Source information
Selenocysteine transfer RNA: a 92-nucleotide RNA sequence from Methylococcus sp. EFPC2. Rfam links the family to the GO term triplet codon-amino acid adaptor activity. It scores 82 bits against the family's covariance model. A reference for the family is Mizutani and Goto (2000), "Eukaryotic selenocysteine tRNA has the 9/4 secondary structure", FEBS Lett.
RNA sequence: GGAAGAGCAUCGUCCCCGGUGGGGCGGCCGGUCUUCAAAACCGGUUGAGGCCGUGAGACGGCCUCGGGCAGGUUCGACUCCUGUUCUCUUCC
Numbered sequence: 001g002g003a004a005g006a007g008c009a010u011c012g013u014c015c016c017c018g019g020u021g022g023g024g025c026g027g028c029c030g031g032u033c034u035u036c037a038a039a040a041c042c043g044g045u046u047g048a049g050g051c052c053g054u055g056a057g058a059c060g061g062c063c064u065c066g067g068g069c070a071g072g073u074u075c076g077a078c079u080c081c082u083g084u085u086c087u088c089u090u091c092c
Base pairs, nucleotide, nucleotide: 001092002091003090004089005088006087007086009084011026012025013024014023015022016021027045028044029043030042031041032040047065048064049063050062051061069083070082071081072080

NCBI's taxonomy places the organism under Bacteria, Gammaproteobacteria, Methylococcales, Methylococcaceae, Methylococcus.